[Rfam]
ROOL RNA: a 572-nucleotide sequence. It is one of the family's seed sequences. Firmicutes, Fusobacteria (1 example), Tenericutes (1 example).

RNA sequence: UACUUUAAUUAUAAUUAUGAAUAUCUCAGUGAAGAUGGGUUGAUACUCUGCUGAGACAGUUUGUACAUAGCGAAUGUGUAUAGAAAGAUAUUUUUAUAUGCAAGUCGUAUUUUAGUUGGAGACAGCUAAAAUAGAGAGAAAAAUUCUCGAUUAUAAAAACUGGUGCCAAGAGUUAACGCUUUGAAAGGUAUAGAACUUGUGGUUGGCGUAAUAGACGUUCCAGUGGAAAAUAAGCCUUAGACAGUUAUGGGGGCAUAGCAAGUUAAUAAGGUAAUCCCAAAACAAGCCAAUUUGUCUUGAUGUUUUAGAAAUGAAACUAUAACACAAGUCGCUAGUAAAAGUAGCCUUAUGACAGGAUGAAGAUUAUUCUAUUACAUAAUUGGUGUAAGAAAAUAAAAAGUGCUGAAUAUUGGGUGAAAUUUGUGAGUAGUCAUUCUCACAUAGGUAAAGUCGAAAGACGGGGUGUAAAGUCAAGGGUCGCUCCCGGAAACUCAGCUACAUCUCCCUAGUGACUGAAUAUCAAAGAAGUUGAUGGAGGUAAGGCGAAGGUCUAUUCAUAAUUAUAAUUAAGG
Numbered sequence: 001u002a003c004u005u006u007a008a009u010u011a012u013a014a015u016u017a018u019g020a021a022u023a024u025c026u027c028a029g030u031g032a033a034g035a036u037g038g039g040u041u042g043a044u045a046c047u048c049u050g051c052u053g054a055g056a057c058a059g060u061u062u063g064u065a066c067a068u069a070g071c072g073a074a075u076g077u078g079u080a081u082a083g084a085a086a087g088a089u090a091u092u093u094u095u096a097u098a099u100g101c102a103a104g105u106c107g108u109a110u111u112u113u114a115g116u117u118g119g120a121g122a123c124a125g126c127u128a129a130a131a132u133a134g135a136g137a138g139a140a141a142a143a144u145u146c147u148c149g150a151u152u153a154u155a156a157a158a159a160c161u162g163g164u165g166c167c168a169a170g171a172g173u174u175a176a177c178g179c180u181u182u183g184a185a186a187g188g189u190a191u192a193g194a195a196c197u198u199g200u201g202g203u204u205g206g207c208g209u210a211a212u213a214g215a216c217g218u219u220c221c222a223g224u225g226g227a228a229a230a231u232a233a234g235c236c237u238u239a240g241a242c243a244g245u246u247a248u249g250g251g252g253g254c255a256u257a258g259c260a261a262g263u264u265a266a267u268a269a270g271g272u273a274a275u276c277c278c279a280a281a282a283c284a285a286g287c288c289a290a291u292u293u294g295u296c297u298u299g300a301u302g303u304u305u306u307a308g309a310a311a312u313g314a315a316a317c318u319a320u321a322a323c324a325c326a327a328g329u330c331g332c333u334a335g336u337a338a339a340a341g342u343a344g345c346c347u348u349a350u351g352a353c354a355g356g357a358u359g360a361a362g363a364u365u366a367u368u369c370u371a372u373u374a375c376a377u378a379a380u381u382g383g384u385g386u387a388a389g390a391a392a393a394u395a396a397a398a399a400g401u402g403c404u405g406a407a408u409a410u411u412g413g414g415u416g417a418a419a420u421u422u423g424u425g426a427g428u429a430g431u432c433a434u435u436c437u438c439a440c441a442u443a444g445g446u447a448a449a450g451u452c453g454a455a456a457g458a459c460g461g462g463g464u465g466u467a468a469a470g471u472c473a474a475g476g477g478u479c480g481c482u483c484c485c486g487g488a489a490a491c492u493c494a495g496c497u498a499c500a501u502c503u504c505c506c507u508a509g510u511g512a513c514u515g516a517a518u519a520u521c522a523a524a525g526a527a528g529u530u531g532a533u534g535g536a537g538g539u540a541a542g543g544c545g546a547a548g549g550u551c552u553a554u555u556c557a558u559a560a561u562u563a564u565a566a567u568u569a570a571g572g
Base pairs, nucleotide, nucleotide: 008568010566014562016560021555025055026054027053028052029051037048038047039046040045057162058161059160060159061158062157071107072106073105075102076101078099079098080097081096082095083094084093085092086091108133109132110131111130112129113128114127115126116125117124118123136148137147138146139145140144174532176530181524182523187520188514191334192333193332195329196328197327198326199325200324201323202291203290204289205288206287207286218228219227220226221225234272235271236270237269238268241263242262244259245258246257251278252277253276292355293354294353295352296351302317303316304315305314306313338420344415345414346413347412349410402496403495404494405493427437442509444507445459451457461506462504463503469497470492475485476484477483541552542551543550544549